[Rfam]
RNA sequence: GCGACCCCACAACGGCUUCCUGGCGUGGGGACACACACAUAAUGGAGCA
Numbered sequence: 001g002c003g004a005c006c007c008c009a010c011a012a013c014g015g016c017u018u019c020c021u022g023g024c025g026u027g028g029g030g031a032c033a034c035a036c037a038c039a040u041a042a043u044g045g046a047g048c049a
Stems, first nucleotide, its partner, number of pairs: 005030006013022002015048003019045002
The family of this 49-nucleotide RNA is "SAM/SAH riboswitch aptamer". The family's consensus secondary structure is taken from published work. It is one of the family's seed sequences. For this family Rfam cites "The structure of the SAM/SAH-binding riboswitch" (Weickhmann et al., Nucleic Acids Res, 2019). Its family is annotated with S-adenosylmethionine metabolic process and regulation of gene expression in the Gene Ontology.